[Rfam]
RNA: TPP riboswitch aptamer (THI element)
Organism: Terrabacter sp. MAHUQ-38
RNA sequence: CCAUCACGACAGGGGAGCGCGAUACGCGCUGAGAGUGCGGCAGCCCGGACGGGCCGAGCCGCAGACCCUCGAACCUGCUCCGGUUAGCACCGGCGAAGGAAGUCGGUAGUUCUCAGGU
Dot-bracket structure: ......((((((((..(((((...)))))......(((((..................)))))..))))....(((...((((......))))...)))..)))).............